Rfam assigns this 66-nucleotide sequence from Sclerotinia sclerotiorum to the family "bZIP non canonical Hac1/Xbp1 intron".
RNA sequence: GUUCUUUCGGUAUGACACAACAUCCUGCCGCGAUGUUGUGCGACCUGCAGUGUCAACCGAAAGUAC
Numbered sequence: 001g002u003u004c005u006u007u008c009g010g011u012a013u014g015a016c017a018c019a020a021c022a023u024c025c026u027g028c029c030g031c032g033a034u035g036u037u038g039u040g041c042g043a044c045c046u047g048c049a050g051u052g053u054c055a056a057c058c059g060a061a062a063g064u065a066c
Base pairs, nucleotide, nucleotide: 001066002065004063005062008059009058010057011056019037020036021035022034023033024032042054043053044052
Rfam describes the family as follows. bZIP intron RNA is a non-canonical intron that was first reported in HAC1 gene in yeast and XBP1 gene in Metazoa.
A reference for the family is Hooks and Griffiths-Jones (2011), "Conserved RNA structures in the non-canonical Hac1/Xbp1 intron", RNA Biol.
Rfam classes the family as a small RNA.